The record is a 118-nucleotide sequence from Centaurea solstitialis, which matches "Small nucleolar RNA snoR104" in Rfam. The source organism's lineage runs through Eukaryota, Streptophytina, Spermatophyta, Magnoliopsida and Centaurea. The base pairs follow the family's consensus structure, which was predicted with WAR. The literature on the family includes a 2002 paper in Curr Biol by Marker et al., "Experimental RNomics: identification of 140 candidates for small non-messenger RNAs in the plant Arabidopsis thaliana".

RNA sequence: GGGGAGCAUUUAAAGUCAUUGAUGUUGCCUGAUAUACCCUUCCUAUAACAAAAUCUCAAUUUUCCUACUUGUGAAUGUGAGUUAUGUUCACAAGCCUCUUUAACUAUGAGUUACAUAA
Number, nucleotide and partner (000 for none) at each position: 001g030002g029003g028004g000005a026006g025007c024008a023009u022010u021011u000012a000013a000014a000015g000016u000017c000018a000019u000020u000021g010022a009023u008024g007025u006026u005027g000028c003029c002030u001031g000032a000033u000034a000035u000036a000037c000038c000039c000040u000041u000042c000043c000044u000045a000046u000047a000048a000049c000050a000051a000052a000053a000054u000055c110056u109057c000058a000059a000060u000061u000062u000063u000064c000065c000066u000067a000068c094069u093070u092071g091072u090073g089074a088075a000076u086077g085078u084079g000080a000081g000082u000083u000084a078085u077086g076087u000088u074089c073090a072091c071092a070093a069094g068095c000096c000097u000098c000099u000100u000101u000102a000103a000104c000105u000106a000107u000108g000109a056110g055111u000112u000113a000114c000115a000116u000117a000118a000